This 152-nucleotide RNA from Castor canadensis belongs to the Rfam family "Small nucleolar RNA SNORA57". Rfam 15.1 lists 1,736 matches to the family in 530 species. Rfam describes the family as follows. U99 belongs to the H/ACA class of snoRNAs which are thought to guide the sites of modification of uridines to pseudouridines, the target for this family is unknown. The family's RNA type in Rfam is H/ACA-box small nucleolar RNA. Pairs were carried over by alignment from the consensus structure, which was predicted with PFOLD.
RNA sequence: UCUCCUUUUCUUGGGGGGACCAGGCAUGUGGUCCUGCUUCCCAUUAUAUAAGAAGGCAGAAGAAGGAAAGGGCACUGGCUCUCUCGGUGUCGUGGCUUCAGUAACUGGCAGCUUCCCGUUCACCAGUUCUAUCCUCAAAUGCUGGGACAUGG
Number, nucleotide and partner (000 for none) at each position: 001u056002c055003u054004c000005c052006u000007u000008u000009u000010c000011u000012u000013g000014g000015g042016g041017g040018g039019a038020c000021c036022a035023g034024g033025c000026a000027u000028g000029u000030g000031g000032u000033c024034c023035u022036g021037c000038u019039u018040c017041c016042c015043a000044u000045u000046a000047u000048a000049u000050a000051a000052g005053a000054a003055g002056g001057c000058a000059g000060a000061a000062g000063a000064a000065g000066g000067a000068a000069a000070g000071g000072g000073c000074a000075c000076u000077g000078g000079c000080u000081c000082u000083c000084u000085c144086g143087g142088u141089g140090u139091c000092g000093u000094g000095g000096c000097u000098u000099c000100a000101g000102u000103a000104a000105c126106u125107g124108g123109c000110a000111g120112c000113u000114u000115c000116c000117c000118g000119u000120u111121c000122a000123c108124c107125a106126g105127u000128u000129c000130u000131a000132u000133c000134c000135u000136c000137a000138a000139a090140u089141g088142c087143u086144g085145g000146g000147a000148c000149a000150u000151g000152g000